[Rfam]
RNA sequence: UGGUGCAUUAGCUGCACCCACCAAUGCCCCGGUGAUCUGAGAGGGGCGCCUUCGGGUGAUUGCAUACCAAUGUCACCGUAGCCUGAGAGGUGGCGCCUUCGGGUGGUACAGCCCUUUAAUCUUUGGAAACGGCUGUCGUGUACUUCUGCGACGAAGAUAUUU
Numbered sequence: 001u002g003g004u005g006c007a008u009u010a011g012c013u014g015c016a017c018c019c020a021c022c023a024a025u026g027c028c029c030c031g032g033u034g035a036u037c038u039g040a041g042a043g044g045g046g047c048g049c050c051u052u053c054g055g056g057u058g059a060u061u062g063c064a065u066a067c068c069a070a071u072g073u074c075a076c077c078g079u080a081g082c083c084u085g086a087g088a089g090g091u092g093g094c095g096c097c098u099u100c101g102g103g104u105g106g107u108a109c110a111g112c113c114c115u116u117u118a119a120u121c122u123u124u125g126g127a128a129a130c131g132g133c134u135g136u137c138g139u140g141u142a143c144u145u146c147u148g149c150g151a152c153g154a155a156g157a158u159a160u161u162u
Stems, first nucleotide, its partner, number of pairs: 002018006026047005032063006048057003072094005078109003082106002095104003111133003115129001119158005135152006

The family of this 162-nucleotide RNA from Salmonella enterica is "STAXI RNA". The sequence is in the family's curated seed alignment. The source organism's lineage runs through Bacteria, Pseudomonadati, Enterobacteriaceae, Salmonella enterica and Salmonella enterica subsp. enterica serovar Typhi.